[Rfam]
Archaeal signal recognition particle RNA: a 316-nucleotide sequence from Methanobacterium congolense.
RNA sequence: AAAUGGGCUAGACUGGAGGGUUAGGGGUCCUCUGUAAGCGCAUAUCCCCUAUACGGCGCGGUUGAAGUUCAAGAGGCGGCAGGUUAACUGGGAAUUGGCCCAGGAUUUCGAUGUCGAAACCUCGUCCCGCAGGAUUAGUGGUGGAAGGGCUUCGGCUGUAGGGCCGGGGUUAACUACCUUAACCACAGGAACGGAUCAGGUCUGGAAAGAAGCAGUUCUACUGUGGACAGCUGAUGCUUGUGGAGCAACGGGGUGGAGUCGGGUUUCUGGAUCACCAGUUUUCAGGAGGCCUGUCCACUCUUGAACACGCCCACUU
Numbered sequence: 001a002a003a004u005g006g007g008c009u010a011g012a013c014u015g016g017a018g019g020g021u022u023a024g025g026g027g028u029c030c031u032c033u034g035u036a037a038g039c040g041c042a043u044a045u046c047c048c049c050u051a052u053a054c055g056g057c058g059c060g061g062u063u064g065a066a067g068u069u070c071a072a073g074a075g076g077c078g079g080c081a082g083g084u085u086a087a088c089u090g091g092g093a094a095u096u097g098g099c100c101c102a103g104g105a106u107u108u109c110g111a112u113g114u115c116g117a118a119a120c121c122u123c124g125u126c127c128c129g130c131a132g133g134a135u136u137a138g139u140g141g142u143g144g145a146a147g148g149g150c151u152u153c154g155g156c157u158g159u160a161g162g163g164c165c166g167g168g169g170u171u172a173a174c175u176a177c178c179u180u181a182a183c184c185a186c187a188g189g190a191a192c193g194g195a196u197c198a199g200g201u202c203u204g205g206a207a208a209g210a211a212g213c214a215g216u217u218c219u220a221c222u223g224u225g226g227a228c229a230g231c232u233g234a235u236g237c238u239u240g241u242g243g244a245g246c247a248a249c250g251g252g253g254u255g256g257a258g259u260c261g262g263g264u265u266u267c268u269g270g271a272u273c274a275c276c277a278g279u280u281u282u283c284a285g286g287a288g289g290c291c292u293g294u295c296c297a298c299u300c301u302u303g304a305a306c307a308c309g310c311c312c313a314c315u316u
Stems, first nucleotide, its partner, number of pairs: 001316002004313005011063004015033007038059004067306009078295004082290001084288001088285011100270006107263006114256001119254007127243007134235005139229002141180001143178002146175002148171010183226006193218004201210003
Dot-bracket structure: ((.(((((..(((((((((((.....)))))))....((((..............))))))))...(((((((((..(((((.(...(((((((((((.((((((.((((((.(....(((((((.(((((((((((((((.((.((((((((((((....))))))))))..)).)).)..((((((....((((....(((....)))....))))..)))))).)).))))).)))))))....))))))).).)))))).))))))....)))))))))))..).).))))..)))))))))..))))).))

Source information
It is annotated as a non-coding RNA gene. Taxonomically the source falls in Methanobacterium (Archaea, Methanobacteriati, Methanobacteriota, Methanobacteria). Rfam links the family to the GO terms signal recognition particle, plasma membrane targeting and SRP-dependent cotranslational protein targeting to membrane, signal sequence recognition. Its Rfam clan is "SRP clan". On this family, see Rosenblad et al., Nucleic Acids Res 2003: "SRPDB: Signal Recognition Particle Database".